Shown here is a 278-nucleotide RNA from Rousettus aegyptiacus, a member of the family "HIF-1 alpha IRES". This family represents the hypoxia-inducible factor 1-alpha internal ribosome entry site. HIF-1a is a subunit of the HIF-1 transcription factor, which induces transcription of several genes involved in the cellular response to hypoxia. The HIF-1a IRES allows translation to be maintained under hypoxic cell conditions that inhibit cap-dependent translation. The family's RNA type in Rfam is internal ribosome entry site. For this family Rfam cites "Hypoxia-inducible factor-1alpha mRNA contains an internal ribosome entry site that allows efficient translation during normoxia and hypoxia" (Lang et al., Mol Biol Cell, 2002). A search with the family's covariance model found it, with a score of 228 bits.
RNA sequence: CUCGUCUGAGGGGACGCGAGGAUCGCCGCCGCCGCUUCGGCCCGUGAGUCGGGCCAGGCCCGGACCAGCAGCCCGAGGGAAGGCUCUUCGGAGCCCGGCCAGGAGGCCUGCGAUUGCUGCCCGCUCCUCCUGCCUCUGGUCUCACGAGGGGUUUCCCGCCUUGCACCUCUGGACCAGCCUUUCCUUCUCUCCCCGCGUGUGGAGGGAGCCAGCGCUUAGGCCGGAGCGAGCCUGGGGGCCGCCGGCCGAGAAGGCGUCGCGGGGACCGAUUCGCCAUG
Numbered sequence: 001c002u003c004g005u006c007u008g009a010g011g012g013g014a015c016g017c018g019a020g021g022a023u024c025g026c027c028g029c030c031g032c033c034g035c036u037u038c039g040g041c042c043c044g045u046g047a048g049u050c051g052g053g054c055c056a057g058g059c060c061c062g063g064a065c066c067a068g069c070a071g072c073c074c075g076a077g078g079g080a081a082g083g084c085u086c087u088u089c090g091g092a093g094c095c096c097g098g099c100c101a102g103g104a105g106g107c108c109u110g111c112g113a114u115u116g117c118u119g120c121c122c123g124c125u126c127c128u129c130c131u132g133c134c135u136c137u138g139g140u141c142u143c144a145c146g147a148g149g150g151g152u153u154u155c156c157c158g159c160c161u162u163g164c165a166c167c168u169c170u171g172g173a174c175c176a177g178c179c180u181u182u183c184c185u186u187c188u189c190u191c192c193c194c195g196c197g198u199g200u201g202g203a204g205g206g207a208g209c210c211a212g213c214g215c216u217u218a219g220g221c222c223g224g225a226g227c228g229a230g231c232c233u234g235g236g237g238g239c240c241g242c243c244g245g246c247c248g249a250g251a252a253g254g255c256g257u258c259g260c261g262g263g264g265a266c267c268g269a270u271u272c273g274c275c276a277u278g
Stems, first nucleotide, its partner, number of pairs: 001013003016029003031059003080154003084151001127148003131144001175212001177210001179208004188203003222245001224243001226242003